[Rfam]
RNA sequence: GACGUCAUCUUACCAGGCAGUAUUAGAGUACUUACUACCUUCUAAUACUGUCAGGUAAAGAUGUCUAC
Numbered sequence: 001g002a003c004g005u006c007a008u009c010u011u012a013c014c015a016g017g018c019a020g021u022a023u024u025a026g027a028g029u030a031c032u033u034a035c036u037a038c039c040u041u042c043u044a045a046u047a048c049u050g051u052c053a054g055g056u057a058a059a060g061a062u063g064u065c066u067a068c
Base pairs, nucleotide, nucleotide: 004065006063007062008061009060010058011057012056013055014054016052017051018050019049020048021047022046023045024044025043026042027041

The family of this 68-nucleotide sequence from Trichonephila clavata is "mir-8/mir-141/mir-200 microRNA precursor family". For this family Rfam cites "New microRNAs from mouse and human" (Lagos-Quintana et al., RNA, 2003). The organism belongs to Trichonephila, within Eukaryota. A search with the family's covariance model found it, with a score of 60 bits. Rfam 15.1 lists 2,669 matches to the family in 883 species. Its Rfam clan is "mir-8 microRNA precursor clan".